[Rfam]
RNA sequence: AGCUGAUGCAUAUGGCGGUCUCCUCCCAGUUCCGCCGCCGCAGCUGUUCCCCUCUGGAGGUCAAAGAUCUCCACACUUUAUGGGCCGCGGGUUACUCCGUCGGCCCUUUUU
Dot-bracket structure: (((((..((.....((((.............)))).))..))))).........(((((((.....)))))))........((((((((((....)))).)))))).....
This 111-nucleotide RNA from Rhizobium sp. LC145 belongs to the Rfam family "Alphaproteobacterial ar15". The match comes from Rfam's covariance-model search (98 bits). On this family, see Wilms et al., Mol Microbiol 2011: "Small RNA-mediated control of the Agrobacterium tumefaciens GABA binding protein". The base pairs follow the family's consensus structure. Rfam links the family to the GO term protein binding. It is annotated as a small RNA.